[Rfam]
RNA sequence: AGUUCGACGGGGUCAACGCCGCGGGUUACGACGAGGUAGUCGCGCAUGACGAUGCCGUGGCGGUUUUC
Numbered sequence: 001a002g003u004u005c006g007a008c009g010g011g012g013u014c015a016a017c018g019c020c021g022c023g024g025g026u027u028a029c030g031a032c033g034a035g036g037u038a039g040u041c042g043c044g045c046a047u048g049a050c051g052a053u054g055c056c057g058u059g060g061c062g063g064u065u066u067u068c
Base pairs, nucleotide, nucleotide: 004063005062006061008059009058012029013028015027016026017025035056036055037054038053040052041051042050